[Rfam]
Rfam assigns this 57-nucleotide RNA from Oriolus oriolus to the family "algC RNA".
RNA sequence: GAGCAAUUCACUUAUUUACUGCCAAGUGAUGGCUAAAUGUUGCCUGAAGAAGAGUAA
Numbered sequence: 001g002a003g004c005a006a007u008u009c010a011c012u013u014a015u016u017u018a019c020u021g022c023c024a025a026g027u028g029a030u031g032g033c034u035a036a037a038u039g040u041u042g043c044c045u046g047a048a049g050a051a052g053a054g055u056a057a
Stems, first nucleotide, its partner, number of pairs: 009028005
About this RNA
The family's RNA type in Rfam is cis-regulatory element.